This 52-nucleotide RNA from Oceanibacterium hippocampi belongs to the Rfam family "chrB-b RNA". Rfam classes the family as a cis-regulatory element. It scores 37 bits against the family's covariance model.
RNA sequence: UCGGGACGUCGCGGUCUCCCGGCCACCCAAGGCCUCAGUGCCCAAGCACCGC
Numbered sequence: 001u002c003g004g005g006a007c008g009u010c011g012c013g014g015u016c017u018c019c020c021g022g023c024c025a026c027c028c029a030a031g032g033c034c035u036c037a038g039u040g041c042c043c044a045a046g047c048a049c050c051g052c
Stems, first nucleotide, its partner, number of pairs: 001022006011052005031042003